A member of the RNA family "Mesorhizobail RNA 7" from Mesorhizobium ciceri, 311 nucleotides long. It is one of the family's seed sequences. The family's RNA type in Rfam is small RNA. A reference for the family is Fuli et al. (2017), "A Genome-Wide Prediction and Identification of Intergenic Small RNAs by Comparative Analysis in Mesorhizobium huakuii 7653R", Front Microbiol. Existence predicted via genome wide comparisons with 4 related strains. Analysed further by deep sequencing and Northern blot under various stress conditions. Expressed only under rare growth conditions: symbiosis, micro-oxygen stress, and alkali stress.
RNA sequence: UCGCUUUCCCUGCCUUCUGCUCGUGUACGACCGACAUCGGGGUCAGCCCGUCACGUCGCAAUACAUAUACCAACCAUGAUAUAGCAACCAUCAAAGAUCGCAUUUGACAGUUAUGGCAAAGACCCACACCCUCCGCGCGUUCCAAGACGUGACGGUCGCCGACGAGAAAAAUCGUAUCGAUUGAAUCAGCGUCUCGGGGCCAUGGGAGGAUACCGGAGAUCGAUAUGACGGCAGCGGUGCCUUGGCGCUUCUGCACGAUUGCGCGGCCCGCGACCCCCGGGGUGCCGCGUCCAUCAAACAGGGAGAGUUAA
Numbered sequence: 001u002c003g004c005u006u007u008c009c010c011u012g013c014c015u016u017c018u019g020c021u022c023g024u025g026u027a028c029g030a031c032c033g034a035c036a037u038c039g040g041g042g043u044c045a046g047c048c049c050g051u052c053a054c055g056u057c058g059c060a061a062u063a064c065a066u067a068u069a070c071c072a073a074c075c076a077u078g079a080u081a082u083a084g085c086a087a088c089c090a091u092c093a094a095a096g097a098u099c100g101c102a103u104u105u106g107a108c109a110g111u112u113a114u115g116g117c118a119a120a121g122a123c124c125c126a127c128a129c130c131c132u133c134c135g136c137g138c139g140u141u142c143c144a145a146g147a148c149g150u151g152a153c154g155g156u157c158g159c160c161g162a163c164g165a166g167a168a169a170a171a172u173c174g175u176a177u178c179g180a181u182u183g184a185a186u187c188a189g190c191g192u193c194u195c196g197g198g199g200c201c202a203u204g205g206g207a208g209g210a211u212a213c214c215g216g217a218g219a220u221c222g223a224u225a226u227g228a229c230g231g232c233a234g235c236g237g238u239g240c241c242u243u244g245g246c247g248c249u250u251c252u253g254c255a256c257g258a259u260u261g262c263g264c265g266g267c268c269c270g271c272g273a274c275c276c277c278c279g280g281g282g283u284g285c286c287g288c289g290u291c292c293a294u295c296a297a298a299c300a301g302g303g304a305g306a307g308u309u310a311a
Stems, first nucleotide, its partner, number of pairs: 018063001019056002024053002077122001084117002086112003091107005136151006153183006163174003191200003204269003229261003247254002276303003279299001281295004